[Rfam]
RNA: MIR5269 microRNA precursor family
RNA sequence: UUGGUUUAAAUGAAUGUGGGUCUCACACAUUAGAAAUUGGUUCCACUUAAAGUGGUGGGACAUACAUUCAUUUAAACUAA
Numbered sequence: 001u002u003g004g005u006u007u008a009a010a011u012g013a014a015u016g017u018g019g020g021u022c023u024c025a026c027a028c029a030u031u032a033g034a035a036a037u038u039g040g041u042u043c044c045a046c047u048u049a050a051a052g053u054g055g056u057g058g059g060a061c062a063u064a065c066a067u068u069c070a071u072u073u074a075a076a077c078u079a080a
Stems, first nucleotide, its partner, number of pairs: 001080018023058003026054003030050003